[Rfam]
RNA sequence: GCCGUCCUAGCUCAGUUGGUAGAGCGCCAGGCUUUUAAAGAAAAGAGAUAACCUGGUGGUCGGGGGUUCGAGUCCCCCGGACGGCG
Number, nucleotide and partner (000 for none) at each position: 001g085002c084003c083004g082005u081006c080007c079008u000009a000010g025011c024012u023013c022014a000015g000016u000017u000018g000019g000020u000021a000022g013023a012024g011025c010026g000027c056028c055029a054030g053031g052032c000033u000034u000035u000036u000037a000038a000039a000040g000041a000042a000043a000044a000045g000046a000047g000048a000049u000050a000051a000052c031053c030054u029055g028056g027057u000058g000059g000060u000061c000062g078063g077064g076065g075066g074067u000068u000069c000070g000071a000072g000073u000074c066075c065076c064077c063078c062079g007080g006081a005082c004083g003084g002085c001086g000
RNA: tRNA